[Rfam]
RNA sequence: GACCCAGGUCCGAAUUGUCACCGUAUGGUGUGCGUUCCGCUCAAGCGGAUAGGACCUGGGUUUUUU
Numbered sequence: 001g002a003c004c005c006a007g008g009u010c011c012g013a014a015u016u017g018u019c020a021c022c023g024u025a026u027g028g029u030g031u032g033c034g035u036u037c038c039g040c041u042c043a044a045g046c047g048g049a050u051a052g053g054a055c056c057u058g059g060g061u062u063u064u065u066u
Stems, first nucleotide, its partner, number of pairs: 001062011016034003019030004036049005
Dot-bracket structure: (((((((((((....(((((((....)))).))).(((((....)))))..)))))))))))....